[Rfam]
RNA: U1 spliceosomal RNA
Organism: Smittium megazygosporum
RNA sequence: UUACUUACCUUGUAUCGUUGCCAGGUGAUCAUGUAGGCCUGGCUACCGAAAAAACUUGAUGCAUUGCACACCGCGUUCGGGUUUUUUUGCGAACGCCCUAAAUUGGGUGUCUCGGAUGCACAAUUUUUGUUUGAAGGAGAUUGGCCAUUCGUGCUCUUUCUCCAU
Numbered sequence: 001u002u003a004c005u006u007a008c009c010u011u012g013u014a015u016c017g018u019u020g021c022c023a024g025g026u027g028a029u030c031a032u033g034u035a036g037g038c039c040u041g042g043c044u045a046c047c048g049a050a051a052a053a054a055c056u057u058g059a060u061g062c063a064u065u066g067c068a069c070a071c072c073g074c075g076u077u078c079g080g081g082u083u084u085u086u087u088u089g090c091g092a093a094c095g096c097c098c099u100a101a102a103u104u105g106g107g108u109g110u111c112u113c114g115g116a117u118g119c120a121c122a123a124u125u126u127u128u129g130u131u132u133g134a135a136g137g138a139g140a141u142u143g144g145c146c147a148u149u150c151g152u153g154c155u156c157u158u159u160c161u162c163c164a165u
Base pairs, nucleotide, nucleotide: 012119013118014117015116017046018045020043021042022041023040024039025038026037048088049087050086051085054082055081056080058078059077061074062073090114091113092112093110094109095108097106098105136163137162138161139160143157144156146153147152